[Rfam]
This 82-nucleotide sequence from Polaribacter reichenbachii belongs to the Rfam family "Flavo-1 RNA". Rfam classes the family as a small RNA. The family's consensus secondary structure is taken from published work.
RNA sequence: AGUUAGCAAUACGCGUUAAGGAUUGAAACGACAUCCUUUUUUCUUUUUCAGAAAAAAGAUAUAGUGUAAAGCCUGACCUGAA
Numbered sequence: 001a002g003u004u005a006g007c008a009a010u011a012c013g014c015g016u017u018a019a020g021g022a023u024u025g026a027a028a029c030g031a032c033a034u035c036c037u038u039u040u041u042u043c044u045u046u047u048u049c050a051g052a053a054a055a056a057a058g059a060u061a062u063a064g065u066g067u068a069a070a071g072c073c074u075g076a077c078c079u080g081a082a
Stems, first nucleotide, its partner, number of pairs: 019074003023070002028065002033060003039055005